[Rfam]
RNA sequence: GGGUGCUUGAGGCUAUCUGUCUCAGGCAAUCUCCAAAAGGCAGAUAGAGAAAAGCCCCGGAAACAUUGAGCGUCUUGCCGGACGCUUAACACUUACCGAGGCCCAAAUCUAUGCCAAGCAGCAUUAGAUUAGCCUCUUACAGACCUACGGGUCAAGGAGAAGCAGGCUAUG
Numbered sequence: 001g002g003g004u005g006c007u008u009g010a011g012g013c014u015a016u017c018u019g020u021c022u023c024a025g026g027c028a029a030u031c032u033c034c035a036a037a038a039g040g041c042a043g044a045u046a047g048a049g050a051a052a053a054g055c056c057c058c059g060g061a062a063a064c065a066u067u068g069a070g071c072g073u074c075u076u077g078c079c080g081g082a083c084g085c086u087u088a089a090c091a092c093u094u095a096c097c098g099a100g101g102c103c104c105a106a107a108u109c110u111a112u113g114c115c116a117a118g119c120a121g122c123a124u125u126a127g128a129u130u131a132g133c134c135u136c137u138u139a140c141a142g143a144c145c146u147a148c149g150g151g152u153c154a155a156g157g158a159g160a161a162g163c164a165g166g167c168u169a170u171g
Stems, first nucleotide, its partner, number of pairs: 001058003005055004013047010026034001059097002069093002098136005106130004111124003140162001145157001
RNA: sok antitoxin (CssrC)